The record is a 142-nucleotide RNA from Teladorsagia circumcincta, which matches "Nematode snoRNA ceN88" in Rfam. Rfam classes the family as an H/ACA-box small nucleolar RNA. On this family, see Jia et al., BMC Mol Biol 2007: "Systematic identification of non-coding RNA 2,2,7-trimethylguanosine cap structures in Caenorhabditis elegans".
RNA sequence: GUCCUUCCUUCUUGGCGCUCCUACUUCAUUCUAAGUAGUAGUGUAUGUAAUGGAAGGUAGAUAAUGCCCUCUGGGUAUUCGGGUCUCCUUCGGUGCUAUUCUAUGCUUUCGAAUAGUGUCAUCCUCUGGAUUCGAGACAUUU
Numbered sequence: 001g002u003c004c005u006u007c008c009u010u011c012u013u014g015g016c017g018c019u020c021c022u023a024c025u026u027c028a029u030u031c032u033a034a035g036u037a038g039u040a041g042u043g044u045a046u047g048u049a050a051u052g053g054a055a056g057g058u059a060g061a062u063a064a065u066g067c068c069c070u071c072u073g074g075g076u077a078u079u080c081g082g083g084u085c086u087c088c089u090u091c092g093g094u095g096c097u098a099u100u101c102u103a104u105g106c107u108u109u110c111g112a113a114u115a116g117u118g119u120c121a122u123c124c125u126c127u128g129g130a131u132u133c134g135a136g137a138c139a140u141u142u
Base pairs, nucleotide, nucleotide: 003057004056005055006054007053008052010050015044016043017042018041021038022037023036024035025034026033068075069074078136079135080134081133082132083131084130085129086128092120093119096116097115098114099113100112101111